[Rfam]
RNA sequence: AAUAAAUACAAUUUUGCAAUAUUUAUGUCCAAUAUUUGAUCGCUCGUCUUAUUUGAAUUUUUUAUUAGUAUUUUUAUUGGUACUAGAUGAAAAAACAUGAAUAAUACUUUAUGUGUGUGACUAAUUUUUUUAAAAUUUUUUAAUAAGAUGGAUGGUCAAAUGUUGGAUACAGAUAUCUAAUGCUGCACUUAUU
Numbered sequence: 001a002a003u004a005a006a007u008a009c010a011a012u013u014u015u016g017c018a019a020u021a022u023u024u025a026u027g028u029c030c031a032a033u034a035u036u037u038g039a040u041c042g043c044u045c046g047u048c049u050u051a052u053u054u055g056a057a058u059u060u061u062u063u064a065u066u067a068g069u070a071u072u073u074u075u076a077u078u079g080g081u082a083c084u085a086g087a088u089g090a091a092a093a094a095a096c097a098u099g100a101a102u103a104a105u106a107c108u109u110u111a112u113g114u115g116u117g118u119g120a121c122u123a124a125u126u127u128u129u130u131u132a133a134a135a136u137u138u139u140u141u142a143a144u145a146a147g148a149u150g151g152a153u154g155g156u157c158a159a160a161u162g163u164u165g166g167a168u169a170c171a172g173a174u175a176u177c178u179a180a181u182g183c184u185g186c187a188c189u190u191a192u193u
Base pairs, nucleotide, nucleotide: 028167029166030165031164032163033162035160036159037158038157039156040155041154042153044151045150046149047148048147049146050145051144052143
Rfam assigns this 193-nucleotide sequence from Oryza sativa to the family "MIR812 microRNA precursor family". The base pairs follow the family's consensus structure, which was predicted with RNAalifold. Taxonomically the source falls in Oryza sativa (Eukaryota, Viridiplantae, commelinids, Oryzinae).